[Rfam]
Shown here is an 88-nucleotide sequence from Rosa chinensis, a member of the family "Small nucleolar RNA snoR8a". Pairs were carried over by alignment from the consensus structure, which was predicted with WAR. Taxonomically the source falls in Rosa (Eukaryota, Tracheophyta, rosids, Rosales). A search with the family's covariance model found it, with a score of 94 bits. It is annotated as a C/D-box small nucleolar RNA.
RNA sequence: GUUGUUGCAGUGAUUAUAAAAAUUCCUCGUUCUGAAUGCUAUAGCCAUGGCAUGACAGACACCUUACACCCAUAGAAUAUGAGCAACA
Numbered sequence: 001g002u003u004g005u006u007g008c009a010g011u012g013a014u015u016a017u018a019a020a021a022a023u024u025c026c027u028c029g030u031u032c033u034g035a036a037u038g039c040u041a042u043a044g045c046c047a048u049g050g051c052a053u054g055a056c057a058g059a060c061a062c063c064u065u066a067c068a069c070c071c072a073u074a075g076a077a078u079a080u081g082a083g084c085a086a087c088a
Base pairs, nucleotide, nucleotide: 003088004087006085007084